Rfam assigns this 132-nucleotide RNA from Rattus norvegicus to the family "Small nucleolar RNA SNORA17". Gene Ontology terms of the family: nucleolus and RNA processing. Rfam 15.1 lists 5,784 matches to the family in 673 species. The organism belongs to Rattus, within Eukaryota. The family's RNA type in Rfam is H/ACA-box small nucleolar RNA. The base pairs follow the family's consensus structure, which was predicted with RNAalifold. snoRNA ACA 17 belongs to the H/ACA family of snoRNAs and is predicted to guide pseudouridylation of the 28S rRNA at positions U4659 and U4598. Its Rfam clan is "SNORA17 clan".
[Rfam]
RNA sequence: CCCUGCCCUAGAAGUGUUGCAGGUGCGGCUGUUGUAUCACGAGUACAUCAAUAGGUGUUGGAGAGGAGAGGGACUAUGUCUACACUCAGUGUUCUGACCUGGGAACAUCUGAAGGAUUACUAGCCUAACAUU
Numbered sequence: 001c002c003c004u005g006c007c008c009u010a011g012a013a014g015u016g017u018u019g020c021a022g023g024u025g026c027g028g029c030u031g032u033u034g035u036a037u038c039a040c041g042a043g044u045a046c047a048u049c050a051a052u053a054g055g056u057g058u059u060g061g062a063g064a065g066g067a068g069a070g071g072g073a074c075u076a077u078g079u080c081u082a083c084a085c086u087c088a089g090u091g092u093u094c095u096g097a098c099c100u101g102g103g104a105a106c107a108u109c110u111g112a113a114g115g116a117u118u119a120c121u122a123g124c125c126u127a128a129c130a131u132u
Base pairs, nucleotide, nucleotide: 002061003060005058006057007055008054009053010052014048015047019046021044024041025040027038028037068129071126072125074123075122076121083115086112087111088110089109090107091106092105093104094103